A member of the RNA family "Archaeal signal recognition particle RNA" from Methanothermus fervidus, 310 nucleotides long. Pairs were carried over by alignment from the consensus structure, which is taken from published work. By type it is a non-coding RNA gene. Rfam's curators put it in the seed alignment. Its family is annotated with signal recognition particle, plasma membrane targeting and SRP-dependent cotranslational protein targeting to membrane, signal sequence recognition in the Gene Ontology.
[Rfam]
RNA sequence: AGGCUAGGCCGGGGGGUUAGGGGUCCCCUGUAAGCGCAAAUCCCCUAUAUGGCGCGGCCGAAGCCCAGGAGGCGGCAAGACCGCCAGACAUCGGCCUGAGGGUUAAACAAUGAAGCCUCGUCCCACAGGGCCACCGGUGGCGAGGGUCCAGCUGGAGGGCUGGACCUAAUCGCCUUUGCUGCGGGAACGGGUCAGGCCCGGAAGGGAGCAGCCCUACCGCAGACGGAUGGUGCUUGUGGGUCAACGGGGUGGAGUCUAUAACCCUCAGAUCACCGGUGUCUGGUGGUCUUGUCCACUCCUGGGCGUGCCU
Numbered sequence: 001a002g003g004c005u006a007g008g009c010c011g012g013g014g015g016g017u018u019a020g021g022g023g024u025c026c027c028c029u030g031u032a033a034g035c036g037c038a039a040a041u042c043c044c045c046u047a048u049a050u051g052g053c054g055c056g057g058c059c060g061a062a063g064c065c066c067a068g069g070a071g072g073c074g075g076c077a078a079g080a081c082c083g084c085c086a087g088a089c090a091u092c093g094g095c096c097u098g099a100g101g102g103u104u105a106a107a108c109a110a111u112g113a114a115g116c117c118u119c120g121u122c123c124c125a126c127a128g129g130g131c132c133a134c135c136g137g138u139g140g141c142g143a144g145g146g147u148c149c150a151g152c153u154g155g156a157g158g159g160c161u162g163g164a165c166c167u168a169a170u171c172g173c174c175u176u177u178g179c180u181g182c183g184g185g186a187a188c189g190g191g192u193c194a195g196g197c198c199c200g201g202a203a204g205g206g207a208g209c210a211g212c213c214c215u216a217c218c219g220c221a222g223a224c225g226g227a228u229g230g231u232g233c234u235u236g237u238g239g240g241u242c243a244a245c246g247g248g249g250u251g252g253a254g255u256c257u258a259u260a261a262c263c264c265u266c267a268g269a270u271c272a273c274c275g276g277u278g279u280c281u282g283g284u285g286g287u288c289u290u291g292u293c294c295a296c297u298c299c300u301g302g303g304c305g306u307g308c309c310u
Base pairs, nucleotide, nucleotide: 001310002309003308004307007059008058009057010056011029012028013027014026015025016024017023034055035054036053037052039050063304064303065302066301067300068299069298070297071296074293075292076291077290079287085282086281087280088279089278090277091276092275093274094273098266099265100264101263102262103261104260105257107255108254111252115250116249117248118247119246120245121244122240123239124238125237126236127235128234129233130231131230132229133228134226135225136224137176139174140173141172142171143170144167145166146165147164148163149162150161151160152159153158179222180221181220182219183218184217189214190213191212192211197206198205199204